[Rfam]
Rfam assigns this 297-nucleotide RNA sequence from Microtus ochrogaster to the family "Nuclear RNase P". Taxonomically the source falls in Microtus (Eukaryota, Opisthokonta, Bilateria, Chordata). It scores 208 bits against the family's covariance model. Rfam describes the family as follows. Ribonuclease P (RNase P) is a ubiquitous endoribonuclease, found in archaea, bacteria and eukarya as well as chloroplasts and mitochondria. Clan: RNaseP clan.
RNA sequence: GGCAGAGGAAGCUCAUCUGCGGGGCCACGCACUGAGUGCUCGUCACUCCCUGGCCCCUGGGAAGGUCUGAGACUGGGCCCCCCCGUGGCCAAACUGUGCCCUCCCCAAGCGGGGAGGUGAGUUCCCAGAGAGCAGGGCUCCAUGCAUGGGCAGACUGGGCAGGAAAGGCCGCACCCCCAUGUCAGGCAGAUGCCCCCCUCGCUGGAGCUUGGAACAGACUCACGGCCGGUGGCACAAGUUCAAUGGCUGAGGUGAGGCACGCGCCUUAUAACCCAAUUCAGACUACUCUCCUCCACC
Numbered sequence: 001g002g003c004a005g006a007g008g009a010a011g012c013u014c015a016u017c018u019g020c021g022g023g024g025c026c027a028c029g030c031a032c033u034g035a036g037u038g039c040u041c042g043u044c045a046c047u048c049c050c051u052g053g054c055c056c057c058u059g060g061g062a063a064g065g066u067c068u069g070a071g072a073c074u075g076g077g078c079c080c081c082c083c084c085g086u087g088g089c090c091a092a093a094c095u096g097u098g099c100c101c102u103c104c105c106c107a108a109g110c111g112g113g114g115a116g117g118u119g120a121g122u123u124c125c126c127a128g129a130g131a132g133c134a135g136g137g138c139u140c141c142a143u144g145c146a147u148g149g150g151c152a153g154a155c156u157g158g159g160c161a162g163g164a165a166a167g168g169c170c171g172c173a174c175c176c177c178c179a180u181g182u183c184a185g186g187c188a189g190a191u192g193c194c195c196c197c198c199u200c201g202c203u204g205g206a207g208c209u210u211g212g213a214a215c216a217g218a219c220u221c222a223c224g225g226c227c228g229g230u231g232g233c234a235c236a237a238g239u240u241c242a243a244u245g246g247c248u249g250a251g252g253u254g255a256g257g258c259a260c261g262c263g264c265c266u267u268a269u270a271a272c273c274c275a276a277u278u279c280a281g282a283c284u285a286c287u288c289u290c291c292u293c294c295a296c297c
Stems, first nucleotide, its partner, number of pairs: 001297002007291003012251004017246002021057004034048005067281005076227004087099001090096001101116006117223007137208005252269007